[Rfam]
About this RNA:
PyrR binding site: a 119-nucleotide RNA from Streptococcus uberis. By type it is a cis-regulatory element. NCBI's taxonomy places the organism under Bacteria, Bacillota, Lactobacillales, Streptococcaceae, Streptococcus uberis. Rfam's curators write: This family represents the PyrR binding site and terminator structure.
RNA sequence: UAUUCCUUUAAAACGGUCCCGUGAGGCUGUCAAGGAGACAAUUCAAGACAUAAGUGUACGCUUUUUGGUGUACGAUUAUUUUGUGAAAUCUCCUUGUUUUCAAGGGGAUUUUUUUUUGU
Numbered sequence: 001u002a003u004u005c006c007u008u009u010a011a012a013a014c015g016g017u018c019c020c021g022u023g024a025g026g027c028u029g030u031c032a033a034g035g036a037g038a039c040a041a042u043u044c045a046a047g048a049c050a051u052a053a054g055u056g057u058a059c060g061c062u063u064u065u066u067g068g069u070g071u072a073c074g075a076u077u078a079u080u081u082u083g084u085g086a087a088a089u090c091u092c093c094u095u096g097u098u099u100u101c102a103a104g105g106g107g108a109u110u111u112u113u114u115u116u117u118g119u
Base pairs, nucleotide, nucleotide: 003037004036005035006034007033008032013030014029015028016027017026018025050079051078052077053076055074056073057072058071059070060069061068062067083114085112086111087110088109089108090107091106092105093104094103095102096101